[Rfam]
Shown here is a 117-nucleotide RNA from Nonomuraea solani, a member of the family "SAM (S-adenosyl methionine) riboswitch aptamer". A reference for the family is Weinberg et al. (2008), "The aptamer core of SAM-IV riboswitches mimics the ligand-binding site of SAM-I riboswitches", RNA. From the family's description: SAM-IV is a mRNA element that regulates gene expression via direct sensing of S-adenosylmethionine (SAM or AdoMet). SAM-IV riboswitches share conserved nucleotide positions with the previously described SAM-I riboswitches sequence analysis and molecular recognition experiments suggest that SAM-I and SAM-IV riboswitches share similar ligand binding sites, but have different scaffolds. It scores 94 bits against the family's covariance model.
RNA sequence: UGUCACGAGUCCAGUGCUAAGCCCCGGCUUGCUGGACGGCAACCCUCCCUACCGCGGCGGGGUGCCCCGGGUGAUGACAUGGUCGUCGAGCUGAGCUUCCGGCGGCAAGCGCGGUCC
Numbered sequence: 001u002g003u004c005a006c007g008a009g010u011c012c013a014g015u016g017c018u019a020a021g022c023c024c025c026g027g028c029u030u031g032c033u034g035g036a037c038g039g040c041a042a043c044c045c046u047c048c049c050u051a052c053c054g055c056g057g058c059g060g061g062g063u064g065c066c067c068c069g070g071g072u073g074a075u076g077a078c079a080u081g082g083u084c085g086u087c088g089a090g091c092u093g094a095g096c097u098u099c100c101g102g103c104g105g106c107a108a109g110c111g112c113g114g115u116c117c
Base pairs, nucleotide, nucleotide: 001079002078003077004076009037010036011035012034013033014032015031020029021028038066039065040064043062044061045060047057048056082106083105084104085103086102087101088100090098